[Rfam]
Shown here is an 86-nucleotide RNA from Apaloderma vittatum, a member of the family "Small nucleolar RNA snR60/Z15/Z230/Z193/J17". A search with the family's covariance model found it, with a score of 57 bits. By type it is a C/D-box small nucleolar RNA. Its Rfam clan is "SNORD77 clan". On this family, see Lowe and Eddy, Science 1999: "A computational screen for methylation guide snoRNAs in yeast".
RNA sequence: AGGCUGUGUGUGAUGACUGCAUAGUUCAGCAGAUGACCCGUGGUGAUCAUGCUGUUACUGUCUUUCGCUCCUAUCUGAUGCAGCCU
Numbered sequence: 001a002g003g004c005u006g007u008g009u010g011u012g013a014u015g016a017c018u019g020c021a022u023a024g025u026u027c028a029g030c031a032g033a034u035g036a037c038c039c040g041u042g043g044u045g046a047u048c049a050u051g052c053u054g055u056u057a058c059u060g061u062c063u064u065u066c067g068c069u070c071c072u073a074u075c076u077g078a079u080g081c082a083g084c085c086u
Base pairs, nucleotide, nucleotide: 004083005082006081007080008079